[Rfam]
Nucleotides: 070
Base pairs, nucleotide, nucleotide: 009062010061011060013058014057018053019052023048024047025046029043030042031041032040033039
Number, partner (000 for none) and nucleotide at each position: 001000a002000c003000u004000u005000a006000g007000c008000c009062c010061u011060g012000a013058u014057u015000g016000a017000a018053a019052c020000g021000g022000c023048a024047u025046c026000c027000u028000u029043u030042u031041u032040g033039u034000u035000u036000u037000u038000u039033a040032c041031a042030a043029a044000a045000a046025g047024a048023u049000a050000u051000a052019g053018u054000g055000g056000a057014a058013a059000g060011c061010a062009g063000g064000a065000a066000a067000u068000a069000g070000c
A member of the RNA family "Flavo-1 RNA" from Polaribacter sp. KT25b, 70 nucleotides long. Pairs were carried over by alignment from the consensus structure, which is taken from published work. The match comes from Rfam's covariance-model search (74 bits). Taxonomically the source falls in Polaribacter (Bacteria, Pseudomonadati, Bacteroidota, Flavobacteriales).